[Rfam]
mir-9/mir-79 microRNA precursor family: a 68-nucleotide RNA from Ornithorhynchus anatinus. The source organism's lineage runs through Eukaryota, Metazoa, Gnathostomata, Amniota and Ornithorhynchus. It is one of the family's seed sequences. The family has 214 seed sequences and 5,647 matches in Rfam 15.1. Rfam links the family to the GO terms miRNA-mediated post-transcriptional gene silencing and RISC complex.
RNA sequence: GUUGUUAUCUUUGGUUAUCUAGCUGUAUGAGUGUAUUGGUCUUCAUAAAGCUAGAUAACCGAAAGUAA
Dot-bracket structure: ....((((.(((((((((((((((.((((((..........)))))).))))))))))))))).))))
Numbered sequence: 001g002u003u004g005u006u007a008u009c010u011u012u013g014g015u016u017a018u019c020u021a022g023c024u025g026u027a028u029g030a031g032u033g034u035a036u037u038g039g040u041c042u043u044c045a046u047a048a049a050g051c052u053a054g055a056u057a058a059c060c061g062a063a064a065g066u067a068a
Stems, first nucleotide, its partner, number of pairs: 005068004010063015026047006

Pairs were carried over by alignment from the consensus structure, which was predicted with RNAalifold.